[Rfam]
RNA sequence: UAAACAGGAACUCAGGUAAAGAACGCCGCGUCCUGCGGCAAUACCUGAGUGACCAGGCUCUGACUGG
Numbered sequence: 001u002a003a004a005c006a007g008g009a010a011c012u013c014a015g016g017u018a019a020a021g022a023a024c025g026c027c028g029c030g031u032c033c034u035g036c037g038g039c040a041a042u043a044c045c046u047g048a049g050u051g052a053c054c055a056g057g058c059u060c061u062g063a064c065u066g067g
Base pairs, nucleotide, nucleotide: 011049012048013047014046015045016044017043025039026038027037028036029035053067054066055065056064

Shown here is a 67-nucleotide RNA sequence from Domibacillus mangrovi, a member of the family "Bacillaceae-1 RNA".
The source organism's lineage runs through Bacteria, Bacilli, Caryophanales, Bacillaceae and Domibacillus.
It scores 51 bits against the family's covariance model.
The family's RNA type in Rfam is small RNA.